Shown here is a 257-nucleotide RNA, a member of the family "ARRPOF RNA". It is annotated as a small RNA. Rfam's curators put it in the seed alignment.

[Rfam]
RNA sequence: AAAAAUCUUACUAACUAUAUUUGUUUUACUAUUUGUACUCAAGAUUUUAUCUUAAGUACAGCGGCUCUGCUCGAAGCCGUAUAGCGUCAAAAUGACGGUAUUAUGAAUUGUAGCAAGGUGCGGGUCUACCUUUCAAAAGGCUCGGCGGUACUCUGUGCGGGUAUUCUAACAACGAUAUAAUUUAGAAAGUAAGCUAAAUCGGGACUUCUGGGGCGGAGUACAGAAGAAUAGACGAACUAGUCUAUGUUAGAAUAAGU
Numbered sequence: 001a002a003a004a005a006u007c008u009u010a011c012u013a014a015c016u017a018u019a020u021u022u023g024u025u026u027u028a029c030u031a032u033u034u035g036u037a038c039u040c041a042a043g044a045u046u047u048u049a050u051c052u053u054a055a056g057u058a059c060a061g062c063g064g065c066u067c068u069g070c071u072c073g074a075a076g077c078c079g080u081a082u083a084g085c086g087u088c089a090a091a092a093u094g095a096c097g098g099u100a101u102u103a104u105g106a107a108u109u110g111u112a113g114c115a116a117g118g119u120g121c122g123g124g125u126c127u128a129c130c131u132u133u134c135a136a137a138a139g140g141c142u143c144g145g146c147g148g149u150a151c152u153c154u155g156u157g158c159g160g161g162u163a164u165u166c167u168a169a170c171a172a173c174g175a176u177a178u179a180a181u182u183u184a185g186a187a188a189g190u191a192a193g194c195u196a197a198a199u200c201g202g203g204a205c206u207u208c209u210g211g212g213g214c215g216g217a218g219u220a221c222a223g224a225a226g227a228a229u230a231g232a233c234g235a236a237c238u239a240g241u242c243u244a245u246g247u248u249a250g251a252a253u254a255a256g257u
Stems, first nucleotide, its partner, number of pairs: 007193006034060006041053002062079005081101003085097005116131004122143005150219006162254009173201003181198005205226006228245006
Dot-bracket structure: ......[[[[[[.....................((((((.((.........)).)))))).(((((........))))).(((.(((((...))))).)))..............[[[[..(((((.]]]].......)))))......{{{{{{......(((((((((..(((.....(((((..]]]]]]))))))))...((((((...}}}}}}.)))))).((((((......)))))))))))))))...